Shown here is a 163-nucleotide sequence from Comamonas terrigena, a member of the family "Manganese Mn2+ riboswitch aptamer (yybP-ykoY)". Taxonomically the source falls in Comamonas (Bacteria, Betaproteobacteria, Burkholderiales, Comamonadaceae). About the family: This RNA was originally discovered in E. coli during a large scale screen and was named SraF. The family was later found to exist upstream of related families of protein genes in many bacteria, including the the yybP and ykoK genes in B. subtilis. The specific functions of these proteins are unknown, but this structured RNA element may be involved in their genetic regulation as a riboswitch. The pairing is the family consensus, mapped onto this sequence.
RNA sequence: CCCUUGGGGAGUAGCCUGCUUCCGCCCUGGAAGCGUCUGCGUCAACACACUCGGCAUCUUCAUGCUGUGGCGCAGGCAUCCGUUCUUCGGUUGGCGAGACCAUCGGCAUGUCACUGCGACGCAGGUCGGGCAGUGGUGGCAUGCCGUUGUGCUCAGGCCCGAC
Numbered sequence: 001c002c003c004u005u006g007g008g009g010a011g012u013a014g015c016c017u018g019c020u021u022c023c024g025c026c027c028u029g030g031a032a033g034c035g036u037c038u039g040c041g042u043c044a045a046c047a048c049a050c051u052c053g054g055c056a057u058c059u060u061c062a063u064g065c066u067g068u069g070g071c072g073c074a075g076g077c078a079u080c081c082g083u084u085c086u087u088c089g090g091u092u093g094g095c096g097a098g099a100c101c102a103u104c105g106g107c108a109u110g111u112c113a114c115u116g117c118g119a120c121g122c123a124g125g126u127c128g129g130g131c132a133g134u135g136g137u138g139g140c141a142u143g144c145c146g147u148u149g150u151g152c153u154c155a156g157g158c159c160c161g162a163c
Stems, first nucleotide, its partner, number of pairs: 018034003035077010052067005084162001